This 596-nucleotide part of an RNA from Candidatus Korarchaeum cryptofilum belongs to the Rfam family "Archaeal large subunit ribosomal RNA".
Nucleotides: 596
Base pairs, nucleotide, nucleotide: 003593004592005591007589008588010586012585013584015582016581018580019579020578021577032575034573035572036571038558039557536549537548538547539546540545
Number, partner (000 for none) and nucleotide at each position: 001000a002000u003593g004592u005591g006000u007589u008588a009000a010586a011000c012585g013584c014000g015582g016581g017000c018580a019579g020578g021577a022000u023000c024000a025000u026000a027000a028000g029000g030000a031000a032575g033000c034573c035572g036571g037000g038558g039557c040000a041000a042000c043000c044000g045000c046000a047000u048000u049000u050000a051000u052000a053000u054000c055000u056000g057000c058000u059000g060000g061000u062000a063000a064000u065000a066000g067000a068000c069000a070000g071000u072000a073000u074000a075000u076000c077000g078000g079000a080000g081000c082000u083000c084000a085000u086000u087000g088000g089000a090000a091000a092000a093000c094000u095000g096000a097000u098000a099000c100000c101000c102000u103000u104000c105000u106000u107000g108000g109000a110000g111000a112000g113000g114000a115000a116000c117000a118000u119000c120000g121000a122000c123000u124000u125000a126000c127000u128000g129000u130000g131000u132000g133000c134000g135000a136000a137000g138000a139000a140000a141000c142000a143000c144000c145000a146000g147000u148000a149000c150000a151000u152000u153000c154000u155000c156000u157000u158000c159000a160000g161000g162000g163000a164000u165000a166000u167000c168000g169000u170000g171000a172000g173000a174000g175000g176000g177000c178000u179000c180000c181000a182000u183000g184000a185000a186000g187000c188000c189000c190000g191000a192000c193000a194000u195000a196000a197000g198000g199000a200000u201000a202000u203000c204000g205000g206000g207000g208000g209000g210000a211000u212000g213000u214000a215000u216000g217000a218000u219000c220000u221000u222000g223000u224000g225000a226000u227000u228000a229000a230000g231000g232000c233000u234000u235000a236000u237000g238000a239000g240000c241000u242000c243000u244000c245000c246000g247000a248000u249000u250000u251000a252000a253000g254000u255000a256000u257000g258000a259000a260000a261000u262000c263000g264000a265000a266000u267000a268000g269000g270000a271000g272000g273000a274000g275000g276000a277000g278000u279000u280000u281000g282000g283000a284000u285000g286000a287000u288000g289000u290000u291000c292000u293000c294000u295000u296000a297000a298000u299000g300000c301000u302000u303000a304000a305000g306000c307000a308000g309000u310000g311000g312000g313000g314000a315000c316000c317000g318000c319000c320000g321000g322000g323000g324000g325000a326000a327000a328000g329000g330000u331000a332000g333000c334000c335000a336000u337000a338000u339000g340000c341000c342000u343000u344000g345000c346000c347000g348000a349000a350000u351000a352000a353000a354000a355000a356000u357000c358000g359000g360000c361000g362000u363000g364000c365000a366000u367000g368000a369000a370000u371000g372000g373000c374000u375000u376000a377000a378000c379000g380000a381000g382000g383000u384000g385000c386000c387000c388000g389000c390000u391000g392000u393000c394000c395000c396000c397000u398000c399000c400000c401000g402000c403000g404000g405000g406000c407000c408000g409000g410000u411000g412000a413000a414000c415000c416000c417000g418000c419000a420000u421000c422000c423000c424000g425000g426000u427000g428000u429000a430000c431000a432000g433000a434000c435000c436000g437000g438000g439000a440000c441000g442000c443000c444000c445000c446000a447000a448000c449000g450000g451000g452000g453000a454000g455000a456000g457000a458000a459000g460000a461000c462000c463000c464000u465000g466000u467000g468000g469000a470000g471000c472000u473000u474000c475000a476000c477000u478000g479000c480000a481000g482000c483000c484000u485000g486000g487000u488000c489000u490000u491000g492000u493000g494000g495000u496000a497000c498000a499000g500000c501000u502000g503000g504000g505000g506000a507000u508000g509000c510000a511000g512000a513000g514000g515000g516000u517000a518000g519000g520000c521000g522000g523000g524000a525000g526000c527000g528000a529000u530000g531000u532000g533000g534000c535000c536549a537548c538547c539546c540545u541000c542000c543000a544000g545540g546539g547538g548537g549536u550000g551000g552000c553000c554000g555000a556000a557039g558038c559000g560000a561000c562000g563000a564000u565000g566000g567000a568000a569000c570000a571036c572035c573034g574000c575032c576000c577021u578020u579019c580018u581016c582015c583000a584013g585012c586010u587000g588008u589007a590000c591005c592004a593003c594000u595000a596000a